Rfam assigns this 75-nucleotide RNA sequence from Octodon degus to the family "mir-328 microRNA precursor family". A search with the family's covariance model found it, with a score of 90 bits. Taxonomically the source falls in Octodon (Eukaryota, Chordata, Tetrapoda, Theria).
[Rfam]
Nucleotides: 075
Stems, first nucleotide, its partner, number of pairs: 002071002006068001008066010019055005025050005
Number, partner (000 for none) and nucleotide at each position: 001000u002071g003070g004000a005000a006068c007000a008066g009065g010064g011063g012062g013061g014060c015059a016058g017057g018000a019055g020054g021053g022052g023051c024000u025050c026049a027048g028047g029046g030000a031000g032000a033000a034000a035000g036000u037000g038000u039000a040000u041000a042000c043000a044000g045000a046029c047028c048027c049026u050025g051023g052022c053021c054020c055019u056000c057017u058016c059015u060014g061013c062012c063011c064010u065009u066008c067000u068006g069000a070003u071002c072000c073000c074000u075000g